[Rfam]
RNA sequence: AGGUGAACAUGAUGAAAAGAGGAUGAGUGAUCAUUGAAAUGAUCCAAUUUUCCAUCGCUACGUUCUUUCUGAUUCACCU
Number, nucleotide and partner (000 for none) at each position: 001a000002g000003g000004u076005g075006a074007a073008c000009a000010u000011g000012a000013u000014g000015a000016a000017a000018a000019g000020a000021g000022g000023a000024u000025g000026a000027g000028u000029g000030a000031u000032c000033a000034u000035u000036g000037a000038a000039a000040u000041g000042a000043u000044c000045c000046a000047a000048u000049u000050u000051u000052c000053c000054a000055u000056c000057g000058c000059u000060a000061c000062g000063u000064u000065c000066u000067u000068u000069c000070u000071g000072a000073u007074u006075c005076a004077c000078c000079u000
Small nucleolar RNA R32/R81/Z41: a 79-nucleotide RNA sequence from Cajanus cajan. It is annotated as a C/D-box small nucleolar RNA. The literature on the family includes a 2001 paper in J Mol Biol by Barneche et al., "Identification of 66 box C/D snoRNAs in Arabidopsis thaliana: extensive gene duplications generated multiple isoforms predicting new ribosomal RNA 2'-O-methylation sites".